[Rfam]
RNA sequence: GAGCUGUGAGGAUAGCUGCGCCAAAGUGGAUGGAGGGUCCUCCACACUGCUCUGACCAACUUGGUUGAUGUAAUCAGGCGCUUCUGAGCUC
Dot-bracket structure: ((((...................................................................................))))
Rfam assigns this 91-nucleotide sequence from Spinacia oleracea to the family "small nucleolar RNA snoR114". By type it is a C/D-box small nucleolar RNA. Rfam 15.1 lists 1,645 matches to the family in 183 species. The literature on the family includes a 2009 paper in Nucleic Acids Res by Chen and Wu, "Mining small RNA sequencing data: a new approach to identify small nucleolar RNAs in Arabidopsis". Lineage of the source: Eukaryota > Viridiplantae > Caryophyllales > Amaranthaceae > Spinacia.